[Rfam]
RNA: Small nucleolar RNA Z39
Organism: Neodrepanis coruscans
RNA sequence: GCACGUGUGAUGUGAGCACUCAGGAUGAGCCACUGUGAUGCUGUAAACGCUUUCUGAUGUG
Number, nucleotide and partner (000 for none) at each position: 001g000002c061003a060004c059005g058006u000007g000008u000009g000010a000011u000012g053013u000014g000015a051016g050017c049018a000019c000020u000021c043022a042023g041024g000025a039026u038027g000028a000029g000030c000031c000032a000033c000034u000035g000036u000037g000038a026039u025040g000041c023042u022043g021044u000045a000046a000047a000048c000049g017050c016051u015052u000053u012054c000055u000056g000057a000058u005059g004060u003061g002